[Rfam]
Rfam assigns this 430-nucleotide sequence from Flavimaricola marinus to the family "Bacterial RNase P class A".
RNA sequence: GCGGAUGGCUGGAUGGCCGCUUUGCGCGGGCGGCUCCGGCAGCCUGCCAGAGAGGAAAGUCCGGACUCCAAAAAGCACGGUGCCGGGUAAUGCCCGGCGGGGGCAACCCCAGGGAAAGCGCCACAGAGAACAGACUACCCCGUCACCCCGAGGUUCGCCAAGGGAAUCGUCGCGGGGAAAAGGUGAAACGGUGGAGUAAGAGCCCACCGCGGACCUGGCAACAGGGACGGCACGGCAAGCCCCACCGGGAGCAAUGCCAAAUAGGGGCCUCGCGCGGGUGUGAUCGGCAACGAUAUCCCCGCACGGAUGCUUGAACCGGAAGGCCCGGGUUGGCAGCUAGAGGCGCAUCGGCAACGGUGCGUUCAGAGGAAUGGUCAUCCAGAGGGGUCAAACCCUUGGACAAAAUCCGGCUUAUAGGCCGUCCGCGCAU
Numbered sequence: 001g002c003g004g005a006u007g008g009c010u011g012g013a014u015g016g017c018c019g020c021u022u023u024g025c026g027c028g029g030g031c032g033g034c035u036c037c038g039g040c041a042g043c044c045u046g047c048c049a050g051a052g053a054g055g056a057a058a059g060u061c062c063g064g065a066c067u068c069c070a071a072a073a074a075g076c077a078c079g080g081u082g083c084c085g086g087g088u089a090a091u092g093c094c095c096g097g098c099g100g101g102g103g104c105a106a107c108c109c110c111a112g113g114g115a116a117a118g119c120g121c122c123a124c125a126g127a128g129a130a131c132a133g134a135c136u137a138c139c140c141c142g143u144c145a146c147c148c149c150g151a152g153g154u155u156c157g158c159c160a161a162g163g164g165a166a167u168c169g170u171c172g173c174g175g176g177g178a179a180a181a182g183g184u185g186a187a188a189c190g191g192u193g194g195a196g197u198a199a200g201a202g203c204c205c206a207c208c209g210c211g212g213a214c215c216u217g218g219c220a221a222c223a224g225g226g227a228c229g230g231c232a233c234g235g236c237a238a239g240c241c242c243c244a245c246c247g248g249g250a251g252c253a254a255u256g257c258c259a260a261a262u263a264g265g266g267g268c269c270u271c272g273c274g275c276g277g278g279u280g281u282g283a284u285c286g287g288c289a290a291c292g293a294u295a296u297c298c299c300c301g302c303a304c305g306g307a308u309g310c311u312u313g314a315a316c317c318g319g320a321a322g323g324c325c326c327g328g329g330u331u332g333g334c335a336g337c338u339a340g341a342g343g344c345g346c347a348u349c350g351g352c353a354a355c356g357g358u359g360c361g362u363u364c365a366g367a368g369g370a371a372u373g374g375u376c377a378u379c380c381a382g383a384g385g386g387g388u389c390a391a392a393c394c395c396u397u398g399g400a401c402a403a404a405a406u407c408c409g410g411c412u413u414a415u416a417g418g419c420c421g422u423c424c425g426c427g428c429a430u
Stems, first nucleotide, its partner, number of pairs: 001426010011415001012379007020052005028044001057413003061410005066251004074312002078247005083097005098112001099110004113242002118240002120236003135182002138177006145170001190208005209231001210229002214225004255335004265326006304318003308314001343362008
Background
Rfam links the family to the GO terms dimeric ribonuclease P complex, tRNA processing and ribonuclease P activity. The source organism's lineage runs through Bacteria, Pseudomonadati, Pseudomonadota, Alphaproteobacteria and Flavimaricola. By type it is a ribozyme. The base pairs follow the family's consensus structure, which is taken from published work.